Rfam assigns this 175-nucleotide RNA from Lacticaseibacillus sharpeae to the family "Lysine riboswitch aptamer". The match comes from Rfam's covariance-model search (102 bits). For this family Rfam cites "Riboswitches Control Fundamental Biochemical Pathways in Bacillus subtilis and Other Bacteria" (Mandal et al., Cell, 2003). Gene Ontology term of the family: lysine biosynthetic process. Pairs were carried over by alignment from the consensus structure, which is taken from published work.
[Rfam]
RNA sequence: UAAUCUGAUAGAGGUUGCGGUCGACAAGACUAGCACGGUGGAGUUCCAGUCAGGGACAUUGAUGCCGCGCGAAAGGGGACACCGCCGAAGUUGUGCACUUGACGCGUGCAUAGCUGGGACGCUGGUUAAUAGCCGGCGGACUGUCGUCGACUUUCGACGGAGCGCUAUCGCAACU
Numbered sequence: 001u002a003a004u005c006u007g008a009u010a011g012a013g014g015u016u017g018c019g020g021u022c023g024a025c026a027a028g029a030c031u032a033g034c035a036c037g038g039u040g041g042a043g044u045u046c047c048a049g050u051c052a053g054g055g056a057c058a059u060u061g062a063u064g065c066c067g068c069g070c071g072a073a074a075g076g077g078g079a080c081a082c083c084g085c086c087g088a089a090g091u092u093g094u095g096c097a098c099u100u101g102a103c104g105c106g107u108g109c110a111u112a113g114c115u116g117g118g119a120c121g122c123u124g125g126u127u128a129a130u131a132g133c134c135g136g137c138g139g140a141c142u143g144u145c146g147u148c149g150a151c152u153u154u155c156g157a158c159g160g161a162g163c164g165c166u167a168u169c170g171c172a173a174c175u
Base pairs, nucleotide, nucleotide: 006170007169008168009167010166011165017085018084019083020082021081025077033070034069036067037066038065039064040063089115090114091113092112093111094110095109096108097107098106100104116142117141120138121137122136123135124134125133126132144160145159146158147157148156149155150154